[Rfam]
RNA sequence: GCGCGGGGACGACCCCGCGCCUUUUGCUUUUCCGGGGACGACCCC
Numbered sequence: 001g002c003g004c005g006g007g008g009a010c011g012a013c014c015c016c017g018c019g020c021c022u023u024u025u026g027c028u029u030u031u032c033c034g035g036g037g038a039c040g041a042c043c044c045c
Stems, first nucleotide, its partner, number of pairs: 001020008034045004
RNA: Guanidine-II riboswitch aptamer (mini-ykkC)